[Rfam]
RNA sequence: AGCUGUAUAUCUGGUUGACUGAAUGUUUUCUGGACGCGGGUUCGACUCCCGCCGUCUCCACCAACAGUGUAUUUGCUGCUGUAUCCAUAAGACGGAUUCAAGUAUGCUGCUGAUGGGGACGCCAUGGUUUCGACAGGAAAAGAUAGGAAGAUCGGCAGCCGGUAGGCGAUGACCGUAAAUCAAGCAAAACCUUUAAAUGCAAAUGACGAAAGUUACGCAUUAGCAGCCUAA
Numbered sequence: 001a002g003c004u005g006u007a008u009a010u011c012u013g014g015u016u017g018a019c020u021g022a023a024u025g026u027u028u029u030c031u032g033g034a035c036g037c038g039g040g041u042u043c044g045a046c047u048c049c050c051g052c053c054g055u056c057u058c059c060a061c062c063a064a065c066a067g068u069g070u071a072u073u074u075g076c077u078g079c080u081g082u083a084u085c086c087a088u089a090a091g092a093c094g095g096a097u098u099c100a101a102g103u104a105u106g107c108u109g110c111u112g113a114u115g116g117g118g119a120c121g122c123c124a125u126g127g128u129u130u131c132g133a134c135a136g137g138a139a140a141a142g143a144u145a146g147g148a149a150g151a152u153c154g155g156c157a158g159c160c161g162g163u164a165g166g167c168g169a170u171g172a173c174c175g176u177a178a179a180u181c182a183a184g185c186a187a188a189a190c191c192u193u194u195a196a197a198u199g200c201a202a203a204u205g206a207c208g209a210a211a212g213u214u215a216c217g218c219a220u221u222a223g224c225a226g227c228c229u230a231a
Stems, first nucleotide, its partner, number of pairs: 002159004015149002026139003030136003036052005053121007160175004

Overview:
A member of the RNA family "permuted transfer-messenger RNA" from Advenella kashmirensis, 231 nucleotides long. Rfam's curators write: Bacterial tmRNA, also known as 10Sa RNA or SsrA, is named for its dual tRNA and mRNA-like properties. Its role is to liberate the mRNA from a stalled ribosome. To accomplish this part of the tmRNA is used as a reading frame that ends in a translation stop signal. It is annotated as a non-coding RNA gene. The sequence is in the family's curated seed alignment. The base pairs follow the family's consensus structure, which is taken from published work. The organism belongs to Advenella kashmirensis, within Bacteria.